[Rfam]
Nucleotides: 085
Stems, first nucleotide, its partner, number of pairs: 012037002017032006040079004047075002049071003056065003
Number, partner (000 for none) and nucleotide at each position: 001000a002000a003000c004000u005000a006000c007000a008000u009000u010000u011000g012037g013036c014000a015000a016000a017032c018031u019030u020029a021028u022027u023000g024000a025000a026000a027022a028021g029020u030019a031018a032017g033000g034000a035000c036013g037012c038000a039000a040079a041078g042077c043076u044000a045000c046000a047075g048074g049071g050070c051069c052000u053000u054000c055000c056065c057064u058063u059000c060000a061000g062000a063058a064057a065056g066000g067000a068000u069051g070050g071049c072000a073000g074048c075047c076043a077042g078041c079040u080000g081000c082000c083000g084000g085000u
Background:
The record is an 85-nucleotide RNA sequence from Eisenbergiella massiliensis, which matches "c-di-GMP-I riboswitch aptamer" in Rfam. Taxonomically the source falls in Eisenbergiella (Bacteria, Bacillota, Clostridia, Lachnospirales).